Plastid-rps12 3UTR RNA: a 97-nucleotide RNA from Artemisia annua.
Rfam classes the family as a cis-regulatory element.
About the family: Plastid rpl20 is a non-coding RNA (ncRNA) recognised in plastids. It was found in the three prime untranslated region (3UTR) of rps12 gene, its 3UTR location sugest a role in transcript maduration.
A search with the family's covariance model found it, with a score of 84 bits.
[Rfam]
RNA sequence: UCCUUUUAUUGGUGUAAAACCACUCACCUCAAUUCAAGAUGAGAAGCAAUUCUCCAUUGGUAGCAAAUGGUUAUCCAUUAAGCGAAGGGAGCUUGAU
Number, nucleotide and partner (000 for none) at each position: 001u000002c000003c000004u000005u000006u000007u000008a000009u000010u022011g021012g020013u000014g000015u000016a000017a000018a000019a000020c012021c011022a010023c000024u000025c000026a000027c000028c000029u000030c000031a000032a000033u000034u000035c000036a000037a000038g000039a000040u000041g000042a000043g000044a000045a000046g000047c000048a000049a000050u000051u000052c087053u086054c000055c084056a078057u077058u000059g075060g074061u073062a072063g071064c070065a000066a000067a000068u000069g000070g064071u063072u062073a061074u060075c059076c000077a057078u056079u000080a000081a000082g000083c000084g055085a000086a053087g052088g000089g000090a000091g000092c000093u000094u000095g000096a000097u000